[Rfam]
Rfam assigns this 46-nucleotide RNA from Botrimarina colliarenosi to the family "Acido-Lenti-1 RNA".
RNA sequence: CCAGGGGCUCACGCCCCUGGCUACGCGCUGCCGCCCCUCUGGGGCU
Numbered sequence: 001c002c003a004g005g006g007g008c009u010c011a012c013g014c015c016c017c018u019g020g021c022u023a024c025g026c027g028c029u030g031c032c033g034c035c036c037c038u039c040u041g042g043g044g045c046u
Stems, first nucleotide, its partner, number of pairs: 001020008033045005

By type it is a small RNA.